[Rfam]
RNA: mir-1 microRNA precursor family
RNA sequence: CUCGAUGCUCCAUACUUCUUUACAUUCCAUACGUAUAAUAUCACUAUGGGAUAGUAAGGAAGUACGGAACCUGAGG
Number, nucleotide and partner (000 for none) at each position: 001c000002u000003c000004g000005a000006u000007g070008c000009u068010c067011c066012a000013u064014a063015c062016u061017u060018c059019u058020u057021u056022a055023c054024a052025u051026u000027c049028c048029a047030u046031a045032c000033g000034u000035a000036u000037a000038a000039u000040a000041u000042c000043a000044c000045u031046a030047u029048g028049g027050g000051a025052u024053a000054g023055u022056a021057a020058g019059g018060a017061a016062g015063u014064a013065c000066g011067g010068a009069a000070c007071c000072u000073g000074a000075g000076g000